[Rfam]
RNA sequence: GGGUUAUUCCUAGCCUUGCUAUCGAAGAUUGGCGACAAUUUUCGAGGAAAUUCCCUGGACCUUGGGCAGAAAGUGUCGGUCGUUGACGACUCCAUCAGUUGAGACGGGUUACCGCUGUGACUCUCCGGAUGAGCCUGAACCCGUCAGAUUGUGUUGGUCAAAGCAAAGUGAUGCAAGGGAAGUUUGCAACUCAACAGGGGUCACUCAGGAAUAACG
Numbered sequence: 001g002g003g004u005u006a007u008u009c010c011u012a013g014c015c016u017u018g019c020u021a022u023c024g025a026a027g028a029u030u031g032g033c034g035a036c037a038a039u040u041u042u043c044g045a046g047g048a049a050a051u052u053c054c055c056u057g058g059a060c061c062u063u064g065g066g067c068a069g070a071a072a073g074u075g076u077c078g079g080u081c082g083u084u085g086a087c088g089a090c091u092c093c094a095u096c097a098g099u100u101g102a103g104a105c106g107g108g109u110u111a112c113c114g115c116u117g118u119g120a121c122u123c124u125c126c127g128g129a130u131g132a133g134c135c136u137g138a139a140c141c142c143g144u145c146a147g148a149u150u151g152u153g154u155u156g157g158u159c160a161a162a163g164c165a166a167a168g169u170g171a172u173g174c175a176a177g178g179g180a181a182g183u184u185u186g187c188a189a190c191u192c193a194a195c196a197g198g199g200g201u202c203a204c205u206c207a208g209g210a211a212u213a214a215c216g
Stems, first nucleotide, its partner, number of pairs: 003215009014178006022045010050201002053199004065077004078091005093151002103145008114134002122129002180185001
RNA: RNase MRP